[Rfam]
RNA sequence: GCCGAGCUCAGUAGCGAGAGCUUGUAAUCCAAGUGGGGGGGGCAUCAGGGUGGUGUGGAUGUCGAAUUUUUGUGCCUGGGUCCAUGUGUGUAAACUAUGCUGGCCUGCCCGUUCCAAGUUGCGUAGUGGGCGGAGGGACUUUGGCGAAGGCCUUGGCCACUCCGGCCCUGAGGUUGGCAGGCACAGCGUUGGGGCUGGCUUUCACAGAGCAGCGGUCACUGCCCGCUUCCAACGGUGGAAGGAUAACAGGCUGCUGCACCAUGAGCCCGCUUCUUGGGCCCAGACUUCCCACUGUAACAGACCACCAGCUCUU
Number, nucleotide and partner (000 for none) at each position: 001g043002c042003c041004g023005a022006g021007c020008u019009c018010a000011g000012u000013a000014g000015c000016g000017a000018g009019a008020g007021c006022u005023u004024g000025u000026a000027a000028u040029c036030c035031a000032a000033g000034u000035g030036g029037g000038g000039g000040g028041g003042g002043c001044a000045u000046c000047a312048g311049g310050g309051u307052g306053g305054u304055g303056u000057g302058g000059a000060u299061g298062u296063c000064g000065a287066a286067u000068u000069u284070u283071u282072g281073u000074g279075c278076c277077u276078g268079g267080g266081u265082c000083c263084a262085u261086g260087u000088g259089u258090g257091u000092a000093a255094a000095c000096u000097a000098u000099g000100c000101u253102g252103g251104c250105c249106u248107g247108c000109c242110c241111g000112u240113u239114c238115c237116a236117a000118g233119u232120u231121g230122c000123g229124u000125a227126g226127u225128g167129g166130g000131c164132g163133g162134a161135g160136g000137g158138a000139c156140u155141u000142u000143g152144g151145c150146g000147a000148a000149g000150g145151c144152c143153u000154u000155g140156g139157c000158c137159a000160c135161u134162c133163c132164g131165g000166c129167c128168c173169u000170g000171a000172g000173g168174u000175u000176g223177g222178c221179a220180g219181g000182c000183a000184c000185a216186g000187c214188g213189u212190u000191g000192g000193g000194g000195c207196u206197g205198g000199c000200u000201u000202u000203c000204a000205c197206a196207g195208a000209g000210c000211a000212g189213c188214g187215g000216u185217c000218a000219c180220u179221g178222c177223c176224c000225g127226c126227u125228u000229c123230c121231a120232a119233c118234g000235g000236u116237g115238g114239a113240a112241g110242g109243a000244u000245a000246a000247c107248a106249g105250g104251c103252u102253g101254c000255u093256g000257c090258a089259c088260c086261a085262u084263g083264a000265g081266c080267c079268c078269g000270c000271u000272u000273c000274u000275u000276g077277g076278g075279c074280c000281c072282a071283g070284a069285c000286u066287u065288c000289c000290c000291a000292c000293u000294g000295u000296a062297a000298c061299a060300g000301a000302c057303c055304a054305c053306c052307a051308g000309c050310u049311c048312u047313u000
RNA: Plant signal recognition particle RNA